[Rfam]
RNA sequence: ACCUAAUACACAAGCACAGAUCUGUGUCCAGAUUUCCUGGUCAUGGGGGUUUUCCCUCAUGUUUCGGUUGAGAGCUGGGCAGUUCGACGACAUGGAGCCAUCCAUUUCUACAUGUAUGGCACUUUACGGUAUCCAGUCGACAGAUCUCAGAUUAAAUGUCUGCAUUGGGCUUUGUGGCCUGGGUCUUGAGCUCCCACUGGUGAGCUCGGCUUGGGUGCCCUUUUGUGGACGGCGUCAUAUUCCUAAUCUCUUUGCCGAUGACCGUUGGUCAGUGAGGCUAGGGGCUAACCAUGACUUGCCAACAUCC
Numbered sequence: 001a002c003c004u005a006a007u008a009c010a011c012a013a014g015c016a017c018a019g020a021u022c023u024g025u026g027u028c029c030a031g032a033u034u035u036c037c038u039g040g041u042c043a044u045g046g047g048g049g050u051u052u053u054c055c056c057u058c059a060u061g062u063u064u065c066g067g068u069u070g071a072g073a074g075c076u077g078g079g080c081a082g083u084u085c086g087a088c089g090a091c092a093u094g095g096a097g098c099c100a101u102c103c104a105u106u107u108c109u110a111c112a113u114g115u116a117u118g119g120c121a122c123u124u125u126a127c128g129g130u131a132u133c134c135a136g137u138c139g140a141c142a143g144a145u146c147u148c149a150g151a152u153u154a155a156a157u158g159u160c161u162g163c164a165u166u167g168g169g170c171u172u173u174g175u176g177g178c179c180u181g182g183g184u185c186u187u188g189a190g191c192u193c194c195c196a197c198u199g200g201u202g203a204g205c206u207c208g209g210c211u212u213g214g215g216u217g218c219c220c221u222u223u224u225g226u227g228g229a230c231g232g233c234g235u236c237a238u239a240u241u242c243c244u245a246a247u248c249u250c251u252u253u254g255c256c257g258a259u260g261a262c263c264g265u266u267g268g269u270c271a272g273u274g275a276g277g278c279u280a281g282g283g284g285c286u287a288a289c290c291a292u293g294a295c296u297u298g299c300c301a302a303c304a305u306c307c
Stems, first nucleotide, its partner, number of pairs: 018147008026080006033073004037067004042061008088139004094123002097120003158226002164223001167220003182211004188207006194200002231300003234295005247284005254278003260270004
RNA: A. fumigatus sRNA Afu_309